This 130-nucleotide RNA sequence from Campylobacter blaseri belongs to the Rfam family "purD RNA motif". A search with the family's covariance model found it, with a score of 61 bits. The base pairs follow the family's consensus structure, which is taken from published work. It is annotated as a cis-regulatory element. Lineage of the source: Bacteria > Campylobacterota > Epsilonproteobacteria > Campylobacterales > Campylobacter.
[Rfam]
RNA sequence: GUAAAUUUUCGGUGAGAUGUGAUCUUGCUUGAGUCUGUUAAAGGAUUAGAGUUUGCAACCUAAAGAAAAUUUCUAUCUGCAUGAUUGGCUGAUUAGGGCCUAAUCAGUCGUACGCAUCGGUCACCUGGGU
Numbered sequence: 001g002u003a004a005a006u007u008u009u010c011g012g013u014g015a016g017a018u019g020u021g022a023u024c025u026u027g028c029u030u031g032a033g034u035c036u037g038u039u040a041a042a043g044g045a046u047u048a049g050a051g052u053u054u055g056c057a058a059c060c061u062a063a064a065g066a067a068a069a070u071u072u073c074u075a076u077c078u079g080c081a082u083g084a085u086u087g088g089c090u091g092a093u094u095a096g097g098g099c100c101u102a103a104u105c106a107g108u109c110g111u112a113c114g115c116a117u118c119g120g121u122c123a124c125c126u127g128g129g130u
Base pairs, nucleotide, nucleotide: 003072004071005070006069007068008067009066018057019056020055021054024051025050026049033046034045035044036043085102087100088099089098090097